The family of this 85-nucleotide RNA sequence from aff. Roholtiella sp. LEGE 12411 is "Photosynthesis regulatory RNA1". Its family is annotated with regulation of translation and regulation of photosynthesis in the Gene Ontology. The family has 13 seed sequences and 92 matches in Rfam 15.1. From the family's description: Formerly known as Syr1 discovered in Synechocystis sp PCC 6803, is a regulatory factor controlling photosynthetic functions. PsrR1 interacts with the ribosome binding regions of several photosynthesis-related mRNAs. In particular, psaL mRNA is processed by RNase E only in the presence of PsrR1. Rfam classes the family as a small RNA.

RNA sequence: AAGAUUUUUCGAUUUCGGUAUCCCUGUAUCUCAUCAUCAUUCAUACUUCUCCCCUUUUACCUCGGCUAGUUUGGCCGGGGUUUUU
Numbered sequence: 001a002a003g004a005u006u007u008u009u010c011g012a013u014u015u016c017g018g019u020a021u022c023c024c025u026g027u028a029u030c031u032c033a034u035c036a037u038c039a040u041u042c043a044u045a046c047u048u049c050u051c052c053c054c055u056u057u058u059a060c061c062u063c064g065g066c067u068a069g070u071u072u073g074g075c076c077g078g079g080g081u082u083u084u085u
Stems, first nucleotide, its partner, number of pairs: 059081008